The record is a 160-nucleotide sequence from Celeribacter neptunius, which matches "FMN riboswitch aptamer (RFN element)" in Rfam. The match comes from Rfam's covariance-model search (111 bits). The RFN element is a highly conserved domain that is found frequently in the 5'-untranslated regions of prokaryotic mRNAs that encode for flavin mononucleotide (FMN) biosynthesis and transport proteins.
RNA sequence: AAAACCUCUCAGGGCGGGGUGAAAUUCCCCACCGGCGGUAAGCGGGCACCAUGCCCGCAAGCCCGCGAGCGCUUGCGUCUCUCUGUCGAGAGACGCCGGGACAGCAGAUCCGGUGCAACUCCGGAGCCGACGGUCAAAGUCCGGAUGGAAGAGAGAUGAC
Numbered sequence: 001a002a003a004a005c006c007u008c009u010c011a012g013g014g015c016g017g018g019g020u021g022a023a024a025u026u027c028c029c030c031a032c033c034g035g036c037g038g039u040a041a042g043c044g045g046g047c048a049c050c051a052u053g054c055c056c057g058c059a060a061g062c063c064c065g066c067g068a069g070c071g072c073u074u075g076c077g078u079c080u081c082u083c084u085g086u087c088g089a090g091a092g093a094c095g096c097c098g099g100g101a102c103a104g105c106a107g108a109u110c111c112g113g114u115g116c117a118a119c120u121c122c123g124g125a126g127c128c129g130a131c132g133g134u135c136a137a138a139g140u141c142c143g144g145a146u147g148g149a150a151g152a153g154a155g156a157u158g159a160c
Stems, first nucleotide, its partner, number of pairs: 004157001006155005017029003031140002033129002035066004061127002069105002109125005131143003